Notes
XIST RNA A repeat: a 32-nucleotide RNA from Jaculus jaculus. The family has 54 seed sequences and 900 matches in Rfam 15.1. By type it is a small RNA. The literature on the family includes a 2011 paper in RNA by Duszczyk et al., "The Xist RNA A-repeat comprises a novel AUCG tetraloop fold and a platform for multimerization". NCBI's taxonomy places the organism under Eukaryota, Deuterostomia, Tetrapoda, Euarchontoglires, Jaculus.
[Rfam]
RNA sequence: UUGCCCAUCGGGGCCUCGGAUACCUGCUUUCA
Numbered sequence: 001u002u003g004c005c006c007a008u009c010g011g012g013g014c015c016u017c018g019g020a021u022a023c024c025u026g027c028u029u030u031c032a
Stems, first nucleotide, its partner, number of pairs: 003014004017026003